[Rfam]
RNA sequence: UGCCCCAUCCAUUCGGGGUAACUCUAUCGUGACUAGCGUGAAUGGUAACGUUUGGGUUAGAAAGCUCACGAGACAAUGUGGAAGUUCGAGUAGCCUAGGCUGGAACAACUGCUAGAGUAAAAAUGCUAUGGAGAA
Numbered sequence: 001u002g003c004c005c006c007a008u009c010c011a012u013u014c015g016g017g018g019u020a021a022c023u024c025u026a027u028c029g030u031g032a033c034u035a036g037c038g039u040g041a042a043u044g045g046u047a048a049c050g051u052u053u054g055g056g057u058u059a060g061a062a063a064g065c066u067c068a069c070g071a072g073a074c075a076a077u078g079u080g081g082a083a084g085u086u087c088g089a090g091u092a093g094c095c096u097a098g099g100c101u102g103g104a105a106c107a108a109c110u111g112c113u114a115g116a117g118u119a120a121a122a123a124u125g126c127u128a129u130g131g132a133g134a135a
Stems, first nucleotide, its partner, number of pairs: 002019005028070005033060005039054006083101004088096001102127002105124001110117001
Group II catalytic intron D1-D4-7: a 135-nucleotide RNA sequence from Clostridium puniceum. Group II introns are found in rRNA, tRNA and mRNA of organelles in fungi, plants and protists, and also in mRNA in bacteria. The literature on the family includes a 2001 paper in EMBO J by Chu et al., "Control of branch-site choice by a group II intron". Rfam 15.1 lists 1,296 matches to the family in 705 species. The base pairs follow the family's consensus structure. The match comes from Rfam's covariance-model search (54 bits).